[Rfam]
RNA sequence: GGGCAGGGCGUUUAGGGUUCCACUGUCCCAAGGGGCAGGUUCGGUCCGAGAAAUCCACCCGGCGGGCCAAAUCCCGUGGGGCACACGGCGGGCCAAAAUCCCGGGAGGC
Numbered sequence: 001g002g003g004c005a006g007g008g009c010g011u012u013u014a015g016g017g018u019u020c021c022a023c024u025g026u027c028c029c030a031a032g033g034g035g036c037a038g039g040u041u042c043g044g045u046c047c048g049a050g051a052a053a054u055c056c057a058c059c060c061g062g063c064g065g066g067c068c069a070a071a072u073c074c075c076g077u078g079g080g081g082c083a084c085a086c087g088g089c090g091g092g093c094c095a096a097a098a099u100c101c102c103g104g105g106a107g108g109c
Stems, first nucleotide, its partner, number of pairs: 007056002010054003015047002020044002022041001023038006058081003062077005084104001086107001090102003
RNA: Guanidine-I riboswitch aptamer